[Rfam]
RNA sequence: CGUGCCAACUCUGGAGAGCGGCGCCUUGACGGCGCCCACCGAAGGGGCUAACGGCGUUCUCGCCGGAAAAUCUCAGGUUGCCGGACAGAGGGGUGUGA
Numbered sequence: 001c002g003u004g005c006c007a008a009c010u011c012u013g014g015a016g017a018g019c020g021g022c023g024c025c026u027u028g029a030c031g032g033c034g035c036c037c038a039c040c041g042a043a044g045g046g047g048c049u050a051a052c053g054g055c056g057u058u059c060u061c062g063c064c065g066g067a068a069a070a071u072c073u074c075a076g077g078u079u080g081c082c083g084g085a086c087a088g089a090g091g092g093g094u095g096u097g098a
Base pairs, nucleotide, nucleotide: 006093009090010089011088012087013086020036021035022034023033038078039077040076041074042073045072046071052065053064
RNA: Glycine riboswitch aptamer